[Rfam]
RNA sequence: CCCUGUCUUUAGGGGUGCCUAUUUUUUCGAAAGAAUUAAAGAAGCUGAGAUCAAACCCUUGGAACCUGAACAGGGUAAUGCCUGCGAAGGAAAAAGAAGUCGAACCAUC
Number, nucleotide and partner (000 for none) at each position: 001c000002c000003c000004u000005g000006u097007c096008u095009u094010u093011a059012g058013g057014g056015g000016u053017g045018c044019c000020u042021a000022u000023u000024u000025u000026u000027u000028c000029g000030a000031a000032a000033g000034a000035a000036u000037u000038a000039a000040a000041g000042a020043a000044g018045c017046u000047g000048a000049g000050a000051u000052c000053a016054a000055a000056c014057c013058c012059u011060u000061g000062g000063a000064a000065c090066c089067u088068g000069a000070a000071c084072a083073g082074g081075g000076u000077a000078a000079u000080g000081c074082c073083u072084g071085c000086g000087a000088a067089g066090g065091a000092a000093a010094a009095a008096g007097a006098a000099g000100u000101c000102g000103a000104a000105c000106c000107a000108u000109c000
A member of the RNA family "TPP riboswitch aptamer (THI element)" from Bacteroidetes bacterium B1(2017), 109 nucleotides long.